[Rfam]
RNA sequence: GUCUUACAGAUGGCAACGGCUAACGGCGAGUACCCUCGUCCCCUGGCCUACUGGCGUGAUCCGAUUAUUCAUGUCAGCUGUUUGUGAGUCCCGUAUUCAGUCGCACAGUACCUGUGCGAUUGAGGGCCAGACACUGCGCUACCCCGCAGGGCGACCGAUACACGGGCUUCGUGAUCGAUUCUUCCCUGGAGGAGCGUCUCCUCACGGGGCGUUUGCG
Numbered sequence: 001g002u003c004u005u006a007c008a009g010a011u012g013g014c015a016a017c018g019g020c021u022a023a024c025g026g027c028g029a030g031u032a033c034c035c036u037c038g039u040c041c042c043c044u045g046g047c048c049u050a051c052u053g054g055c056g057u058g059a060u061c062c063g064a065u066u067a068u069u070c071a072u073g074u075c076a077g078c079u080g081u082u083u084g085u086g087a088g089u090c091c092c093g094u095a096u097u098c099a100g101u102c103g104c105a106c107a108g109u110a111c112c113u114g115u116g117c118g119a120u121u122g123a124g125g126g127c128c129a130g131a132c133a134c135u136g137c138g139c140u141a142c143c144c145c146g147c148a149g150g151g152c153g154a155c156c157g158a159u160a161c162a163c164g165g166g167c168u169u170c171g172u173g174a175u176c177g178a179u180u181c182u183u184c185c186c187u188g189g190a191g192g193a194g195c196g197u198c199u200c201c202u203c204a205c206g207g208g209g210c211g212u213u214u215g216c217g
Stems, first nucleotide, its partner, number of pairs: 018048005025040006051077003055073005060067001088127002091125002100120008147188005153182001156177004161173004198211001200209003